[Rfam]
RNA sequence: UCACGAUUGGGGCAAACCCGGGGAAACUCGGCGACGCAAAGCUAUAGGGGCUUCGGUAAAUUGCCAUGCCAGCCAGCUGCGACG
Numbered sequence: 001u002c003a004c005g006a007u008u009g010g011g012g013c014a015a016a017c018c019c020g021g022g023g024a025a026a027c028u029c030g031g032c033g034a035c036g037c038a039a040a041g042c043u044a045u046a047g048g049g050g051c052u053u054c055g056g057u058a059a060a061u062u063g064c065c066a067u068g069c070c071a072g073c074c075a076g077c078u079g080c081g082a083c084g
Base pairs, nucleotide, nucleotide: 012037013036018031019030020029021028022027040078041077042076043075047074048073049070050069051068056064057063058062
RNA: c-di-GMP-I riboswitch aptamer
Organism: Sulfobacillus harzensis